Shown here is a 177-nucleotide RNA sequence from Anopheles stephensi, a member of the family "drz-agam-2-2 ribozyme".
The family's consensus secondary structure is taken from published work.
RNA sequence: UCCAACCCGAGCUCUGUUAAUGGGGUAAGACUCCUUUCGGGGUUACAUAGGCUCUCCUACCCAACUUCUAUUCCGUAACGUCCUCGUCGUACAGAGUGGUAACUUUCCCCACCACAUAUCCAAGCUUGGGUACACGGGCCUGUCCCAAUCCUUUGGAGAAAGGCUAAACAGGAGGGG
Numbered sequence: 001u002c003c004a005a006c007c008c009g010a011g012c013u014c015u016g017u018u019a020a021u022g023g024g025g026u027a028a029g030a031c032u033c034c035u036u037u038c039g040g041g042g043u044u045a046c047a048u049a050g051g052c053u054c055u056c057c058u059a060c061c062c063a064a065c066u067u068c069u070a071u072u073c074c075g076u077a078a079c080g081u082c083c084u085c086g087u088c089g090u091a092c093a094g095a096g097u098g099g100u101a102a103c104u105u106u107c108c109c110c111a112c113c114a115c116a117u118a119u120c121c122a123a124g125c126u127u128g129g130g131u132a133c134a135c136g137g138g139c140c141u142g143u144c145c146c147a148a149u150c151c152u153u154u155g156g157a158g159a160a161a162g163g164c165u166a167a168a169c170a171g172g173a174g175g176g177g
Stems, first nucleotide, its partner, number of pairs: 011097007023062005029056002032051002066177004071173002074171001078090003082099002103162005109156002118152001126148005
Rfam links the family to the GO term catalytic activity. Rfam 15.1 lists 486 matches to the family in 10 species. A search with the family's covariance model found it, with a score of 90 bits.